[Rfam]
RNA sequence: UGGUCCAAGGAUCGACGCUGGUCGGCGAGGUUUCGCCCACCGGCGUGUUUGUC
Numbered sequence: 001u002g003g004u005c006c007a008a009g010g011a012u013c014g015a016c017g018c019u020g021g022u023c024g025g026c027g028a029g030g031u032u033u034c035g036c037c038c039a040c041c042g043g044c045g046u047g048u049u050u051g052u053c
Base pairs, nucleotide, nucleotide: 016045017044018043019042020041021040022039025036026035027034028033
RNA: ffh sRNA